This 115-nucleotide RNA from Linnemannia hyalina belongs to the Rfam family "U5 spliceosomal RNA".
It is annotated as a spliceosomal small nuclear RNA.
The family's consensus secondary structure is taken from published work.
Rfam describes the family as follows. U5 RNA is a component of both types of known spliceosome. The precise function of this molecule is unknown, though it is known that the 5' loop is required for splice site selection and p220 binding, and that both the 3' stem-loop and the Sm site are important for Sm protein binding and cap methylation.
[Rfam]
RNA sequence: CGCUCCAGUGGUUAUAACUAUUCCGAACAAACAUCAUGCCUUUUACCUGACGUUUUCGAGUUGCAGCCAUACACAAUGGAGUUGAUCCAUAUUUUUGGUCCCGCCCCUGGCGGGU
Numbered sequence: 001c002g003c004u005c006c007a008g009u010g011g012u013u014a015u016a017a018c019u020a021u022u023c024c025g026a027a028c029a030a031a032c033a034u035c036a037u038g039c040c041u042u043u044u045a046c047c048u049g050a051c052g053u054u055u056u057c058g059a060g061u062u063g064c065a066g067c068c069a070u071a072c073a074c075a076a077u078g079g080a081g082u083u084g085a086u087c088c089a090u091a092u093u094u095u096u097g098g099u100c101c102c103g104c105c106c107c108u109g110g111c112g113g114g115u
Stems, first nucleotide, its partner, number of pairs: 003081004009069005015063005029055004034050003100114005